[Rfam]
The family of this 107-nucleotide RNA from a Parvibaculaceae bacterium is "Glycine riboswitch aptamer". From the family's description: This family represents the bacterial glycine riboswitch. It scores 59 bits against the family's covariance model.

RNA sequence: UCUAUCCCCGCGGGAGAGUCCGGUUACCAGCCUCGAUGAGGUCCAGACCGGCGCCGAAGGAGCAACCGCCCCGGAAACUCUCAGGCACCCAGGACCGCACGGGAUCA
Numbered sequence: 001u002c003u004a005u006c007c008c009c010g011c012g013g014g015a016g017a018g019u020c021c022g023g024u025u026a027c028c029a030g031c032c033u034c035g036a037u038g039a040g041g042u043c044c045a046g047a048c049c050g051g052c053g054c055c056g057a058a059g060g061a062g063c064a065a066c067c068g069c070c071c072c073g074g075a076a077a078c079u080c081u082c083a084g085g086c087a088c089c090c091a092g093g094a095c096c097g098c099a100c101g102g103g104a105u106c107a
Stems, first nucleotide, its partner, number of pairs: 006102002010098004020051006053086003056082002060080003066074002
The organism belongs to Parvibaculaceae, within Bacteria.